[Rfam]
RNA sequence: CAAUGUUGGGUAGAGUUGUAUGGAGUGAAAGAUGGUUUUUUUUUGGGAUUUUCUAAAUUGAACUUUCCCUCUUUCAUUCCAUACAUCGUCUAACCAAAAUAAU
Numbered sequence: 001c002a003a004u005g006u007u008g009g010g011u012a013g014a015g016u017u018g019u020a021u022g023g024a025g026u027g028a029a030a031g032a033u034g035g036u037u038u039u040u041u042u043u044u045g046g047g048a049u050u051u052u053c054u055a056a057a058u059u060g061a062a063c064u065u066u067c068c069c070u071c072u073u074u075c076a077u078u079c080c081a082u083a084c085a086u087c088g089u090c091u092a093a094c095c096a097a098a099a100u101a102a103u
Base pairs, nucleotide, nucleotide: 006097007096008095009094011092012091013090014089015087017085018084019083020082021081022080023079024078025077026076027075028074029073030072031071032070034069035068048058049057050056051055
RNA: MIR1507 microRNA precursor family